[Rfam]
RNA sequence: AAAGUGGCAUACGCCACUGCCAUGGAUUGGUUCAUUGCUGUGUGUUAUGCCUUC
Numbered sequence: 001a002a003a004g005u006g007g008c009a010u011a012c013g014c015c016a017c018u019g020c021c022a023u024g025g026a027u028u029g030g031u032u033c034a035u036u037g038c039u040g041u042g043u044g045u046u047a048u049g050c051c052u053u054c
Stems, first nucleotide, its partner, number of pairs: 002053002006051003010047002013045002015042003019038002022035005
Description
The family of this 54-nucleotide RNA sequence from Callorhinchus milii is "Editing element of GABA-3 exon 9". Pairs were carried over by alignment from the consensus structure, which is taken from published work. NCBI's taxonomy places the organism under Eukaryota, Eumetazoa, Vertebrata, Gnathostomata, Callorhinchus. On this family, see Ohlson et al., RNA 2007: "Editing modifies the GABA(A) receptor subunit alpha3".